[Rfam]
Nucleotides: 143
Base pairs, nucleotide, nucleotide: 001025002024003023004022006021007020008019009018036053037052038051039050060138061137062136086099087097107121108120109119110118111117
Number, partner (000 for none) and nucleotide at each position: 001025u002024g003023u004022c005000u006021g007020g008019c009018u010000g011000g012000u013000c014000c015000a016000a017000c018009a019008g020007u021006c022004g023003g024002c025001g026000u027000u028000a029000c030000u031000g032000a033000a034000g035000a036053g037052g038051c039050a040000c041000c042000a043000c044000u045000u046000u047000c048000c049000u050039u051038g052037c053036c054000a055000a056000a057000a058000g059000u060138g061137c062136g063000g064000a065000u066000g067000g068000g069000g070000a071000c072000u073000c074000c075000c076000u077000c078000c079000a080000a081000u082000c083000c084000a085000a086099g087097g088000c089000a090000g091000a092000c093000a094000a095000a096000c097087c098000g099086c100000g101000g102000u103000g104000a105000a106000u107121g108120c109119g110118a111117g112000g113000c114000g115000c116000u117111u118110u119109u120108g121107c122000g123000c124000c125000c126000g127000g128000a129000c130000a131000a132000u133000c134000a135000u136062c137061g138060c139000a140000c141000u142000c143000g